About this RNA: Rfam assigns this 46-nucleotide sequence from Plasmodium yoelii to the family "Histone 3' UTR stem-loop". Rfam's curators write: The mRNAs of metazoan histone genes lack a poly-A tail. 3' end processing occurs at a site between a highly conserved stem-loop (modelled by this family) and a purine rich region around 20 nts downstream (the histone downstream element, or HDE). Pairs were carried over by alignment from the consensus structure, which is taken from published work. Taxonomically the source falls in Plasmodium yoelii (Eukaryota, Apicomplexa, Plasmodiidae, Vinckeia). Rfam 15.1 lists 44,596 matches to the family in 976 species.

RNA sequence: UUUGAGGCUUCACUAGAAGCCAUUACUAGAUACUUACAAACAAUGU
Numbered sequence: 001u002u003u004g005a006g007g008c009u010u011c012a013c014u015a016g017a018a019g020c021c022a023u024u025a026c027u028a029g030a031u032a033c034u035u036a037c038a039a040a041c042a043a044u045g046u
Base pairs, nucleotide, nucleotide: 006021007020008019009018010017011016